[Rfam]
Annotation:
This 127-nucleotide sequence from Gymnodraco acuticeps belongs to the Rfam family "U4atac minor spliceosomal RNA". The organism belongs to Gymnodraco, within Eukaryota. The family's consensus secondary structure is taken from published work. The family's RNA type in Rfam is spliceosomal small nuclear RNA. Its Rfam clan is "U4 clan". For this family Rfam cites "Evolutionary conservation of minor U12-type spliceosome between plants and humans" (Lorkovic et al., RNA, 2005).
RNA sequence: UCCAACCUUGUCUGGGGGUGAGUGAGCUUCUCAAUGAACGUAUAGUGAGAGUUGCCCUGCUAACACCAGAUCAGCACAUAAGCAUCACCUGGGCUUCGGUCCAGAACAUGGUGCAAUUUUUGGAAAC
Numbered sequence: 001u002c003c004a005a006c007c008u009u010g011u012c013u014g015g016g017g018g019u020g021a022g023u024g025a026g027c028u029u030c031u032c033a034a035u036g037a038a039c040g041u042a043u044a045g046u047g048a049g050a051g052u053u054g055c056c057c058u059g060c061u062a063a064c065a066c067c068a069g070a071u072c073a074g075c076a077c078a079u080a081a082g083c084a085u086c087a088c089c090u091g092g093g094c095u096u097c098g099g100u101c102c103a104g105a106a107c108a109u110g111g112u113g114c115a116a117u118u119u120u121u122g123g124a125a126a127c
Base pairs, nucleotide, nucleotide: 005019006018007017008016009015022060023059024058026055027054030051031050032049038046039045082114083113084112085111086110087109089104090103091102092101093100094099